RNA sequence: AAAGGAGCAAUAACCGAUUUCUUGUUCUAGACAAGAAGGCGGAAUUGCUCCUUUUUUA
Numbered sequence: 001a002a003a004g005g006a007g008c009a010a011u012a013a014c015c016g017a018u019u020u021c022u023u024g025u026u027c028u029a030g031a032c033a034a035g036a037a038g039g040c041g042g043a044a045u046u047g048c049u050c051c052u053u054u055u056u057u058a
Stems, first nucleotide, its partner, number of pairs: 001054011014041001019037006
Overview
A member of the RNA family "Plastid-psbA-3 3UTR RNA" from Cuscuta europaea, 58 nucleotides long. Rfam's curators write: Plastid psbA-3 is a non-coding RNA (ncRNA) present in plastids. It was identified in inverted repeat sequences in the 3 prime untranslate region (3UTR) of photosystem II quinone-binding protein (psbA). The family is grouped with related families in Rfam's "Plastid-psbA 3UTR RNA clan".